[Rfam]
RNA sequence: UCCGCGCGAAUCUCUCGAGACAAAGAGAACCUUGGUUUUCAAUCGUCAUCUACGCAUGUGGGAAAUUCGGAGUAAGCCUCAAAUCCAUCCAACCGUACCGCUAUCUAGCAGUAUCUGGUUUGGUCUGCCGGUAACGGCCUGGCGUCAAUGUCACGUCUGCAAAUGAUAUCAGAAAUCUCAGAGCGGCGACUCGUUUUCGUCCGUACUCUAUGGGAAGUCUUUGCGAGGCUUGUUGGAAAAAAACUGAAGUGCGAUACGCGGCGUCCUGUUUGCUUGCGAACAGGAUGACUCAAUUCCGAUCACUCUGGGGAGGGC
Number, nucleotide and partner (000 for none) at each position: 001u314002c313003c312004g000005c000006g000007c308008g000009a306010a000011u000012c000013u261014c260015u000016c258017g257018a000019g000020a059021c058022a057023a000024a000025g040026a039027g038028a037029a036030c035031c000032u000033u000034g000035g030036u029037u028038u027039u026040c025041a000042a000043u000044c000045g000046u000047c000048a000049u000050c000051u000052a000053c000054g000055c000056a000057u022058g021059u020060g000061g000062g000063a000064a000065a000066u000067u000068c298069g297070g296071a295072g294073u000074a000075a000076g000077c228078c227079u226080c225081a000082a000083a000084u000085c000086c000087a000088u000089c000090c000091a000092a000093c000094c000095g000096u000097a000098c000099c000100g000101c000102u000103a000104u000105c000106u000107a000108g000109c000110a000111g000112u000113a000114u000115c000116u000117g000118g000119u000120u000121u000122g000123g000124u000125c000126u000127g138128c137129c136130g135131g000132u000133a000134a000135c130136g129137g128138c127139c000140u000141g157142g156143c155144g154145u153146c000147a000148a000149u000150g000151u000152c000153a145154c144155g143156u142157c141158u000159g224160c223161a222162a221163a220164u000165g218166a000167u000168a000169u000170c000171a000172g000173a000174a000175a000176u000177c000178u000179c000180a209181g208182a207183g000184c000185g000186g000187c000188g000189a000190c000191u000192c000193g000194u000195u000196u000197u000198c000199g000200u000201c000202c000203g000204u000205a000206c000207u182208c181209u180210a000211u000212g000213g000214g000215a000216a000217g000218u165219c000220u163221u162222u161223g160224c159225g080226a079227g078228g077229c000230u000231u000232g000233u000234u000235g000236g000237a000238a000239a000240a000241a000242a000243a000244c000245u000246g000247a000248a000249g000250u000251g000252c000253g000254a000255u000256a000257c017258g016259c000260g014261g013262c000263g286264u285265c284266c283267u282268g281269u280270u279271u278272g000273c000274u000275u000276g000277c000278g271279a270280a269281c268282a267283g266284g265285a264286u263287g000288a000289c000290u000291c000292a000293a000294u072295u071296c070297c069298g068299a000300u000301c000302a000303c000304u000305c000306u009307g000308g007309g000310g000311a000312g003313g002314g001315c000